[Rfam]
RNA sequence: UCGGUUCCGGUUCACGUACUCCACUCCAUGGGGCUACGACCCGGCGACC
Numbered sequence: 001u002c003g004g005u006u007c008c009g010g011u012u013c014a015c016g017u018a019c020u021c022c023a024c025u026c027c028a029u030g031g032g033g034c035u036a037c038g039a040c041c042c043g044g045c046g047a048c049c
Base pairs, nucleotide, nucleotide: 003049004048005047007044008043009042010041015038016037017036018035020032021031022030

Description:
The record is a 49-nucleotide RNA sequence from Nocardia ignorata, which matches "L31-Actinobacteria ribosomal protein leader" in Rfam. For this family Rfam cites "Discovery of 20 novel ribosomal leader candidates in bacteria and archaea" (Eckert and Weinberg, BMC Microbiol, 2020). The family's consensus secondary structure is taken from published work. It scores 53 bits against the family's covariance model.